[Rfam]
RNA sequence: UAUGGGUGAGCAUAUUACAGCGCUUCUUUGAGAAAGCGCUGUAAAAUGCCCACCCAUAAUUUCAUAUAUGGGUGGGCAUUUUACAGCGCUUUUUUUUUUGAGAAAGCGCUGUAAAAUGCCCACCCAUAAUU
Numbered sequence: 001u002a003u004g005g006g007u008g009a010g011c012a013u014a015u016u017a018c019a020g021c022g023c024u025u026c027u028u029u030g031a032g033a034a035a036g037c038g039c040u041g042u043a044a045a046a047u048g049c050c051c052a053c054c055c056a057u058a059a060u061u062u063c064a065u066a067u068a069u070g071g072g073u074g075g076g077c078a079u080u081u082u083a084c085a086g087c088g089c090u091u092u093u094u095u096u097u098u099u100g101a102g103a104a105a106g107c108g109c110u111g112u113a114a115a116a117u118g119c120c121c122a123c124c125c126a127u128a129a130u131u
Stems, first nucleotide, its partner, number of pairs: 003056006018041008068127011084111012

Notes
Shown here is a 131-nucleotide RNA sequence from Cicer arietinum, a member of the family "Small nucleolar RNA SNORA69". By type it is an H/ACA-box small nucleolar RNA. The source organism's lineage runs through Eukaryota, Streptophyta, Fabaceae, Papilionoideae and Cicer. U69 is a member of the H/ACA class of small nucleolar RNAs (snoRNAs) which act as guides in the the modification of uridines to pseudouridines. Rfam 15.1 lists 808 matches to the family in 584 species.